[Rfam]
RNA sequence: AGCACAAAUGAUGAUUAUCAGGGACUUAAUACUGAAAUAUGAUGUCACUUCUGAGCAAAAACUGAUGUGC
Dot-bracket structure: .(((((...........................................................)))))
RNA: Small nucleolar RNA SNORD82
Organism: Rhipidura dahli